[Rfam]
RNA sequence: GGAUGUGAGGGCAAUCUGGCUGUGACAUCUGUCACCCCAUUGAUCACUAGUGUUGAUUCGGCUGACCUGGCUGGCUAGGCGGGUAUCCCCUUCCUCCCUCACCACUCCAUGCGAGUCUCUCCAGAAGCUGCAUGCUCAGUUGAAAAGGAUGACCUUCCCCCAUACACAUGGUACCGUUCAUUUGUCAUGGGUAUAUGGUAUCUGCACUCCCCUGCUAAAACCUCCAAAAAAGCUCAAGAUCCAGUUGCAGGAAAACGUACAAUAGUCAAGCUUCCAAGACUGCAGACACAUCCAAGUGAGGCACUGCACAUGGCAGUUUGCCAUUCUUU
Number, nucleotide and partner (000 for none) at each position: 001g108002g107003a106004u000005g102006u101007g100008a099009g098010g097011g096012c000013a000014a092015u000016c000017u000018g090019g089020c000021u000022g000023u000024g087025a086026c000027a084028u083029c082030u081031g080032u079033c078034a000035c074036c073037c070038c069039a068040u000041u000042g067043a000044u065045c064046a000047c061048u060049a000050g000051u000052g000053u000054u000055g000056a000057u000058u000059c000060g048061g047062c000063u000064g045065a044066c000067c042068u039069g038070g037071c000072u000073g036074g035075c000076u000077a000078g033079g032080c031081g030082g029083g028084u027085a000086u025087c024088c000089c019090c018091u000092u014093c000094c000095u000096c011097c010098c009099u008100c007101a006102c005103c000104a000105c000106u003107c002108c001109a000110u000111g000112c000113g000114a000115g000116u171117c170118u168119c000120u166121c000122c139123a000124g137125a136126a000127g135128c134129u000130g000131c000132a000133u000134g128135c127136u125137c124138a000139g122140u162141u000142g160143a000144a000145a000146a000147g158148g157149a156150u000151g000152a000153c000154c000155u000156u149157c148158c147159c000160c142161c000162a140163u000164a000165c000166a120167c000168a118169u000170g117171g116172u000173a000174c000175c000176g000177u000178u000179c000180a000181u000182u000183u000184g000185u000186c000187a000188u000189g000190g000191g000192u000193a000194u000195a000196u000197g000198g000199u000200a000201u000202c270203u269204g000205c000206a000207c265208u264209c000210c000211c000212c000213u259214g258215c257216u000217a000218a000219a000220a000221c000222c000223u252224c251225c250226a000227a000228a000229a000230a246231a245232g000233c000234u000235c000236a000237a000238g000239a000240u000241c000242c000243a000244g000245u231246u230247g000248c000249a000250g225251g224252a223253a000254a000255a000256c000257g215258u214259a213260c000261a000262a000263u000264a208265g207266u000267c000268a000269a203270g202271c000272u000273u000274c000275c000276a000277a000278g000279a000280c000281u000282g000283c000284a000285g000286a000287c000288a000289c000290a000291u000292c000293c000294a329295a328296g327297u000298g324299a000300g322301g321302c320303a317304c316305u315306g314307c313308a000309c000310a000311u000312g000313g307314c306315a305316g304317u303318u000319u000320g302321c301322c300323a000324u298325u000326c000327u296328u295329u294